[Rfam]
RNA sequence: CACUCCUAUUUCUGCCCCAUAUUCCCCUUUCUUCUAUGGAUUAAUGGGUCUAACGAUGGAGAAGAAAAAGCCAAUGAAUGGUUCAAUUACAACUUUUGAUACAUCCGUAAUUGAACUUCAUUUGUUGGAUCGUGUAGUUGAGUUGUACAAUUUCUUAAUUCCAAUAUGUUAAUUAAGGAAACGCAAUUCUCUUCUAUAUUC
Numbered sequence: 001c002a003c004u005c006c007u008a009u010u011u012c013u014g015c016c017c018c019a020u021a022u023u024c025c026c027c028u029u030u031c032u033u034c035u036a037u038g039g040a041u042u043a044a045u046g047g048g049u050c051u052a053a054c055g056a057u058g059g060a061g062a063a064g065a066a067a068a069a070g071c072c073a074a075u076g077a078a079u080g081g082u083u084c085a086a087u088u089a090c091a092a093c094u095u096u097u098g099a100u101a102c103a104u105c106c107g108u109a110a111u112u113g114a115a116c117u118u119c120a121u122u123u124g125u126u127g128g129a130u131c132g133u134g135u136a137g138u139u140g141a142g143u144u145g146u147a148c149a150a151u152u153u154c155u156u157a158a159u160u161c162c163a164a165u166a167u168g169u170u171a172a173u174u175a176a177g178g179a180a181a182c183g184c185a186a187u188u189c190u191c192u193u194c195u196a197u198a199u200u201c
Stems, first nucleotide, its partner, number of pairs: 003061004016048004020043002023040003071128010081116010134194001136192002140189005151180005163170002
Dot-bracket structure: ..((((.........((((((.(((............))).)).)))).........)))).........((((((((((((((((((((................))))))))))..)))))))))).....(.((..(((((......(((((.......((....)).....)))))....))))).)).).......